[Rfam]
RNA sequence: GAUAGGUAAAGCCAAACUCAUCGUGAGGUGAGGACGGAAAGUGACAGGCCUUUUUCAAAGCGACACGAAAAAGUCGGCUGCAUUGCAAUA
Dot-bracket structure: ...........((...((((((....))))))...))..((((.((((.(((((((..........))))))).)..)))))))......
RNA: c-di-GMP-I riboswitch aptamer